[Rfam]
RNA: RNA Staph. aureus E (RoxS)
RNA sequence: GUGAAAUUGAUCACAUAACAAACAUUUACCCCUUUGUUUGACCGUGAAAAAUUUCUCCCAUCCCCUUUGUUGUCGUUAAGACAUACAAGAAGAGACCAUGCUUAUCCCGGCAUGGUCUUUUU
Numbered sequence: 001g002u003g004a005a006a007u008u009g010a011u012c013a014c015a016u017a018a019c020a021a022a023c024a025u026u027u028a029c030c031c032c033u034u035u036g037u038u039u040g041a042c043c044g045u046g047a048a049a050a051a052u053u054u055c056u057c058c059c060a061u062c063c064c065c066u067u068u069g070u071u072g073u074c075g076u077u078a079a080g081a082c083a084u085a086c087a088a089g090a091a092g093a094g095a096c097c098a099u100g101c102u103u104a105u106c107c108c109g110g111c112a113u114g115g116u117c118u119u120u121u122u
Base pairs, nucleotide, nucleotide: 003055004054005053006052007051008050011047012046013045014044019040020039021038022037023036024035071088074080092119093118094117095116096115097114098113099112100111101110102109